[Rfam]
RNA sequence: AGGCAGCCCCCUGGCGAAAAAAAGAGAUUGUCAAGGGAGGUGUUACUCUACUCGAAAAUUGAAGGCGCUGAGCUCUUCAGACUUGCUGAGAUUCGGGUUUUUCUUCAUCUUUGAAGUGAGUCUAGUAACGCUCAUCUACAUC
Numbered sequence: 001a002g003g004c005a006g007c008c009c010c011c012u013g014g015c016g017a018a019a020a021a022a023a024g025a026g027a028u029u030g031u032c033a034a035g036g037g038a039g040g041u042g043u044u045a046c047u048c049u050a051c052u053c054g055a056a057a058a059u060u061g062a063a064g065g066c067g068c069u070g071a072g073c074u075c076u077u078c079a080g081a082c083u084u085g086c087u088g089a090g091a092u093u094c095g096g097g098u099u100u101u102u103c104u105u106c107a108u109c110u111u112u113g114a115a116g117u118g119a120g121u122c123u124a125g126u127a128a129c130g131c132u133c134a135u136c137u138a139c140a141u142c
Base pairs, nucleotide, nucleotide: 002044003043004042005041007040008039009037010036011035012034014032017029067136069134072131073130074128079123080122081121082120083119085117086116087115090109091108092107
Rfam assigns this 142-nucleotide RNA sequence from Carnegiea gigantea to the family "Small nucleolar RNA snoR77". NCBI's taxonomy places the organism under Eukaryota, Euphyllophyta, Magnoliopsida, Caryophyllales, Carnegiea. Rfam 15.1 lists 649 matches to the family in 221 species. A reference for the family is Marker et al. (2002), "Experimental RNomics: identification of 140 candidates for small non-messenger RNAs in the plant Arabidopsis thaliana", Curr Biol. The family's RNA type in Rfam is H/ACA-box small nucleolar RNA. Pairs were carried over by alignment from the consensus structure, which was predicted with WAR.